RNA sequence: CUAUAAUGAUGGCAAUAUUUUUUUGUCAAUAGUAGCUCACCUACUGAGUGUUGAUACUUUGUAUCUGAGUGA
Number, nucleotide and partner (000 for none) at each position: 001c000002u071003a070004u069005a000006a000007u000008g027009a026010u025011g024012g000013c000014a000015a000016u000017a000018u000019u000020u000021u000022u000023u000024u011025g010026u009027c008028a000029a000030u000031a000032g000033u000034a000035g000036c000037u000038c000039a000040c000041c000042u000043a000044c000045u000046g000047a000048g000049u000050g000051u000052u000053g000054a000055u000056a000057c000058u000059u000060u000061g000062u000063a000064u000065c000066u000067g000068a000069g004070u003071g002072a000
Annotation
Shown here is a 72-nucleotide RNA sequence from Microcebus murinus, a member of the family "Small nucleolar RNA SNORD56". A search with the family's covariance model found it, with a score of 77 bits. By type it is a C/D-box small nucleolar RNA. The family's consensus secondary structure was predicted with PFOLD. The family has 7 seed sequences and 796 matches in Rfam 15.1.